[Rfam]
RNA: tRNA
Organism: Methanobrevibacter cuticularis
RNA sequence: GGGCCUGUGGUCUAGCCUGGAAUAUGACGAUGGACUUCGGAUCCAUAGGGCAGGGGUUCAAAUCCCCUCAGGUCCG
Dot-bracket structure: (((((((..(((.............))).(((((.......))))).....(((((.......)))))))))))).